[Rfam]
RNA sequence: CGCUGCGAGGCGACAAUCAGGGUAAAGCGACAAGCCCCGAUUUGAUAUCGGGGCUUUUUGUCAUGUGCGCUUUAUGCUGACCUGAUCAGACCUGGGCUUUAUGCCCUUUUUUU
Numbered sequence: 001c002g003c004u005g006c007g008a009g010g011c012g013a014c015a016a017u018c019a020g021g022g023u024a025a026a027g028c029g030a031c032a033a034g035c036c037c038c039g040a041u042u043u044g045a046u047a048u049c050g051g052g053g054c055u056u057u058u059u060g061u062c063a064u065g066u067g068c069g070c071u072u073u074a075u076g077c078u079g080a081c082c083u084g085a086u087c088a089g090a091c092c093u094g095g096g097c098u099u100u101a102u103g104c105c106c107u108u109u110u111u112u113u
Base pairs, nucleotide, nucleotide: 032056033055034054035053036052037051038050039049094106095105096104097103
Description
Gammaprotebacteria rimP leader: a 113-nucleotide RNA sequence from Aeromonas simiae. The match comes from Rfam's covariance-model search (58 bits). Its family is annotated with regulation of gene expression in the Gene Ontology. By type it is a cis-regulatory leader.